[Rfam]
RNA sequence: GCAGGGUGUGUAAACAUCCUACACUCUCAGCUGUGGCUAUGUGGAGGCUGGGGGAAGGUUGUUUACACCCUCUGC
Numbered sequence: 001g002c003a004g005g006g007u008g009u010g011u012a013a014a015c016a017u018c019c020u021a022c023a024c025u026c027u028c029a030g031c032u033g034u035g036g037c038u039a040u041g042u043g044g045a046g047g048c049u050g051g052g053g054g055a056a057g058g059u060u061g062u063u064u065a066c067a068c069c070c071u072c073u074g075c
Base pairs, nucleotide, nucleotide: 002074003073004072005071006070008068009067010066011065012064013063014062015061016060018058019057020056024054025053026052027051028050029049030048031047032046
RNA: mir-30 microRNA precursor family
Organism: Salvator merianae